[Rfam]
The record is a 32-nucleotide RNA, which matches "L31-Firmicutes ribosomal protein leader" in Rfam.

RNA sequence: CUAUGAUUAAUAUUUAAUCAUGGCGAAAGGAG
Number, nucleotide and partner (000 for none) at each position: 001c023002u022003a021004u020005g019006a018007u017008u016009a015010a014011u000012a000013u000014u010015u009016a008017a007018u006019c005020a004021u003022g002023g001024c000025g000026a000027a000028a000029g000030g000031a000032g000